A member of the RNA family "FMN riboswitch aptamer (RFN element)" from Lachnospira eligens, 125 nucleotides long. The source organism's lineage runs through Bacteria, Clostridia, Lachnospirales, Lachnospiraceae and Lachnospira eligens. The family's consensus secondary structure is taken from published work. The match comes from Rfam's covariance-model search (110 bits).
[Rfam]
RNA sequence: AUGGAACUUCAGGGCAGGGUGUGAUUCCCUACCGGUGGUAAAGCCCACGAGCCGAGGCGUAAGCCAGAGCAUGAUUCGGUGUAAUUCCGAAGCCGACAGUAAAGUCUGGAUGAAAGAAGUGAUAU
Dot-bracket structure: ..(..(((((......(((.......))).[[((((((....[[))))....(...............).....(((((.......)))))]])).(((....]]))).......)))))..)..